[Rfam]
RNA sequence: UCAAAACUAGUCACUUGUCAUUUUCUUAUUGGUUCUUAGUGUGUUAAAAAAUUUCUAAAACCAAUUAAAAAAUGACAAGUGGCUAGUUUUGA
Numbered sequence: 001u002c003a004a005a006a007c008u009a010g011u012c013a014c015u016u017g018u019c020a021u022u023u024u025c026u027u028a029u030u031g032g033u034u035c036u037u038a039g040u041g042u043g044u045u046a047a048a049a050a051a052u053u054u055c056u057a058a059a060a061c062c063a064a065u066u067a068a069a070a071a072a073u074g075a076c077a078a079g080u081g082g083c084u085a086g087u088u089u090u091g092a
Base pairs, nucleotide, nucleotide: 002091003090004089005088006087007086008085009084010083011082012081013080014079015078016077017076018075019074020073021072022071023070024069026067028065029064030063031062032061033060034059036058037057038056039055

Notes
A member of the RNA family "MIR6288 microRNA precursor family" from Prunus avium, 92 nucleotides long. It scores 85 bits against the family's covariance model. Lineage of the source: Eukaryota > Euphyllophyta > Spermatophyta > Gunneridae > Prunus. The family has 3 seed sequences and 293 matches in Rfam 15.1.